[Rfam]
Nucleotides: 135
Base pairs, nucleotide, nucleotide: 001135002134003133004132005131006129007128008127010125011124012123013122014121015120016119017118018117019116020115021114022113023112024111026109027108028107029106030105031104032103033102034101035100036099037098038097040095041094042093043092044091045090046089047088048087
Number, partner (000 for none) and nucleotide at each position: 001135g002134g003133a004132a005131u006129u007128a008127a009000u010125a011124a012123a013122c014121c015120g016119u017118c018117u019116c020115u021114u022113a023112a024111c025000u026109u027108u028107u029106a030105a031104c032103u033102a034101a035100a036099a037098a038097g039000g040095c041094u042093a043092a044091g045090a046089a047088c048087u049000g050000g051000u052000u053000u054000u055000u056000a057000a058000a059000u060000a061000a062000g063000a064000g065000a066000u067000u068000u069000a070000a071000u072000a073000a074000c075000u076000a077000u078000u079000u080000a081000a082000a083000a084000a085000c086000a087048g088047g089046u090045u091044c092043u093042u094041a095040g096000c097038c098037u099036u100035u101034u102033u103032a104031g105030u106029u107028a108027a109026a110000c111024g112023u113022u114021a115020a116019g117018a118017g119016a120015c121014g122013g123012u124011u125010u126000c127008u128007u129006a130000u131005a132004u133003u134002c135001c